[Rfam]
RNA sequence: AAGUUUCUAUAUGACUGACGGAUUAGCAGAAUGAACUGCGGGGAGUAUAGAAAUGGAAAGUCGACCGUCUGGGCACUACAU
Dot-bracket structure: ..((((((((((..(([[[[[....((((......)))).))..)))))))))).....(((..]]]]]..))).......